The record is a 57-nucleotide RNA, which matches "msiK RNA" in Rfam. The family's consensus secondary structure is taken from published work.
RNA sequence: CACAACAAUCCAUUCACUCGGAUCGUCCGGCACGUACCUGCCGGUGAAGGAGCAAUA
Numbered sequence: 001c002a003c004a005a006c007a008a009u010c011c012a013u014u015c016a017c018u019c020g021g022a023u024c025g026u027c028c029g030g031c032a033c034g035u036a037c038c039u040g041c042c043g044g045u046g047a048a049g050g051a052g053c054a055a056u057a
Stems, first nucleotide, its partner, number of pairs: 010050002013048004027044006